Annotation
Selenocysteine insertion sequence 1: a 67-nucleotide RNA from Eudyptes chrysocome. The literature on the family includes a 1996 paper in RNA by Walczak et al., "A novel RNA structural motif in the selenocysteine insertion element of eukaryotic selenoprotein mRNAs". Rfam 15.1 lists 3,793 matches to the family in 721 species. The family's RNA type in Rfam is cis-regulatory element. It scores 38 bits against the family's covariance model.

Nucleotides: 067
Stems, first nucleotide, its partner, number of pairs: 001065003015054004020049005030043003
Number, partner (000 for none) and nucleotide at each position: 001065c002064a003063c004000g005000u006000c007000u008000c009000c010000a011000u012000g013000a014000a015054g016053g017052c018051u019000u020049a021048g022047c023046c024045c025000g026000a027000a028000a029000g030043c031042c032041c033000c034000u035000g036000g037000u038000g039000u040000g041032g042031g043030g044000c045024g046023g047022g048021c049020u050000u051018g052017g053016c054015c055000u056000g057000a058000u059000c060000c061000u062000g063003g064002u065001g066000g067000g